[Rfam]
RNA sequence: UCAUUAGUGAGGUCAAUCCUUACCUGUUUAUCUCAUAAAGAGAUUUACAGAAAAUGAUGAGCGGAGGAUAAUGAGAUAUGAUUAUGUCUCCCUCCUGACUGGUCGCAAUAACCAGUCAGGAGCCGUUCUGAU
Numbered sequence: 001u002c003a004u005u006a007g008u009g010a011g012g013u014c015a016a017u018c019c020u021u022a023c024c025u026g027u028u029u030a031u032c033u034c035a036u037a038a039a040g041a042g043a044u045u046u047a048c049a050g051a052a053a054a055u056g057a058u059g060a061g062c063g064g065a066g067g068a069u070a071a072u073g074a075g076a077u078a079u080g081a082u083u084a085u086g087u088c089u090c091c092c093u094c095c096u097g098a099c100u101g102g103u104c105g106c107a108a109u110a111a112c113c114a115g116u117c118a119g120g121a122g123c124c125g126u127u128c129u130g131a132u
Stems, first nucleotide, its partner, number of pairs: 024050003028047001030044005073090002076087004094120009